[Rfam]
RNA sequence: UAUGGAUCUGUGAUGUUAUAAUUAAACUGCGUUAUCUAUCUGAUACUUCCCAAGGGAUUUUGAAGAUAACUAUAAUUUACUGAGAUCCCUU
Numbered sequence: 001u002a003u004g005g006a007u008c009u010g011u012g013a014u015g016u017u018a019u020a021a022u023u024a025a026a027c028u029g030c031g032u033u034a035u036c037u038a039u040c041u042g043a044u045a046c047u048u049c050c051c052a053a054g055g056g057a058u059u060u061u062g063a064a065g066a067u068a069a070c071u072a073u074a075a076u077u078u079a080c081u082g083a084g085a086u087c088c089c090u091u
Base pairs, nucleotide, nucleotide: 002090004088005087006086007085